[Rfam]
RNA sequence: GCUGGGAGUCGUGGCGUGCUCCUGUAAUCCAGUUACUUGGAGGCUGGGGUUGUGGAACGGUUUGAGGGCGGGAGUCCUGCUUGUCGGUGCUCUAUGUCGAUCGGGCGUCCGCACUAAGCUCGGCAUCAAUAUGGUCACCCCUGGGGAGCCUAGGGUGCCCAGGUUGCCUAAGGAGGGACGUACAGGUCCAGGGCGGAAACGCAGCAGACAAAAGUCCCCAUGUCGAGCAGUAGUGGGAUCGCGCCUGUGAAUAGGCGACGCCUUGCAGCCCGUCCGACAUAGUUGGACUCAAUCCUUU
Numbered sequence: 001g002c003u004g005g006g007a008g009u010c011g012u013g014g015c016g017u018g019c020u021c022c023u024g025u026a027a028u029c030c031a032g033u034u035a036c037u038u039g040g041a042g043g044c045u046g047g048g049g050u051u052g053u054g055g056a057a058c059g060g061u062u063u064g065a066g067g068g069c070g071g072g073a074g075u076c077c078u079g080c081u082u083g084u085c086g087g088u089g090c091u092c093u094a095u096g097u098c099g100a101u102c103g104g105g106c107g108u109c110c111g112c113a114c115u116a117a118g119c120u121c122g123g124c125a126u127c128a129a130u131a132u133g134g135u136c137a138c139c140c141c142u143g144g145g146g147a148g149c150c151u152a153g154g155g156u157g158c159c160c161a162g163g164u165u166g167c168c169u170a171a172g173g174a175g176g177g178a179c180g181u182a183c184a185g186g187u188c189c190a191g192g193g194c195g196g197a198a199a200c201g202c203a204g205c206a207g208a209c210a211a212a213a214g215u216c217c218c219c220a221u222g223u224c225g226a227g228c229a230g231u232a233g234u235g236g237g238a239u240c241g242c243g244c245c246u247g248u249g250a251a252u253a254g255g256c257g258a259c260g261c262c263u264u265g266c267a268g269c270c271c272g273u274c275c276g277a278c279a280u281a282g283u284u285g286g287a288c289u290c291a292a293u294c295c296u297u298u
Stems, first nucleotide, its partner, number of pairs: 001044003004023006028041003046296007054288001058285005066275007077268004083262001085260002088257002091255005097249001102247007109237002112235005118228009127166004132161003136157005143150002167173002175218005186209003193202003
Metazoan signal recognition particle RNA: a 298-nucleotide RNA sequence from Owenia fusiformis. The organism belongs to Owenia, within Eukaryota. Rfam classes the family as a non-coding RNA gene. The family's consensus secondary structure is taken from published work. It scores 266 bits against the family's covariance model. From the family's description: The signal recognition particle (SRP) is a universally conserved ribonucleoprotein. It is involved in the co-translational targeting of proteins to membranes. The eukaryotic SRP consists of a 300-nucleotide 7S RNA and six proteins: SRPs 72, 68, 54, 19, 14, and 9. Archaeal SRP consists of a 7S RNA and homologues of the eukaryotic SRP19 and SRP54 proteins. Eukaryotic and archaeal 7S RNAs have very similar secondary structures, as represented by this family. Eight helical elements fold into the Alu and S domains, separated by a long linker region. The Alu domain is thought to mediate the peptide chain elongation retardation function of the SRP. The universally conserved helix which interacts with the SRP54 M domain mediates signal sequence recognition. In eukaryotes and archaea, the SRP19-helix 6 complex is thought to be involved in SRP assembly and stabilises helix 8 for SRP54 binding. The Signal Recognition Particle Database (SRPDB) provides compilations of SRP components, with phylogenetic data and structural illustrations. Many sequences below the threshold for this family are clearly closely related, but are most likely to be SRP RNA derived pseudogenes. The human genome in particular is known to contain a large amount of SRP RNA related sequence, including Alu repeats. While the threshold of this family is set high so as to minimise the number of hits to such regions, it is likely that some remain. On this family, see Batey et al., J Mol Biol 2001: "Structural and energetic analysis of RNA recognition by a universally conserved protein from the signal recognition particle".